A member of the RNA family "Small nucleolar RNA Z43" from Daucus carota, 94 nucleotides long.
The family's consensus secondary structure was predicted with PFOLD.
Rfam 15.1 lists 859 matches to the family in 240 species.
The organism belongs to Daucus carota, within Eukaryota.
RNA sequence: GGACACUGAUGAUUGUGAUUGGUCUCGUUCGUCAUAACGGUGAAUUUUCACCUUGCCGACCAUCCUGUUAUAUCACCACCCAUAAACUGAGUCC
Numbered sequence: 001g002g003a004c005a006c007u008g009a010u011g012a013u014u015g016u017g018a019u020u021g022g023u024c025u026c027g028u029u030c031g032u033c034a035u036a037a038c039g040g041u042g043a044a045u046u047u048u049c050a051c052c053u054u055g056c057c058g059a060c061c062a063u064c065c066u067g068u069u070a071u072a073u074c075a076c077c078a079c080c081c082a083u084a085a086a087c088u089g090a091g092u093c094c
Base pairs, nucleotide, nucleotide: 001094002093003092004091042054043053